[Rfam]
RNA sequence: UAUGAGCAUGGGGUUUAGGGUCUGACAAACUCGAAUAUCGUUGUGUUGUCAUCAGCUUCUUCUCUUGAAAAUUCCAACGAGAUUGAGUUAAAUAACAGCACUACAUGC
Numbered sequence: 001u002a003u004g005a006g007c008a009u010g011g012g013g014u015u016u017a018g019g020g021u022c023u024g025a026c027a028a029a030c031u032c033g034a035a036u037a038u039c040g041u042u043g044u045g046u047u048g049u050c051a052u053c054a055g056c057u058u059c060u061u062c063u064c065u066u067g068a069a070a071a072u073u074c075c076a077a078c079g080a081g082a083u084u085g086a087g088u089u090a091a092a093u094a095a096c097a098g099c100a101c102u103a104c105a106u107g108c
Stems, first nucleotide, its partner, number of pairs: 043101006054089005061082004
This 108-nucleotide sequence from Sesamum indicum belongs to the Rfam family "Small nucleolar RNA snoR97". Its family is annotated with RNA processing and nucleolus in the Gene Ontology. The base pairs follow the family's consensus structure, which was predicted with WAR.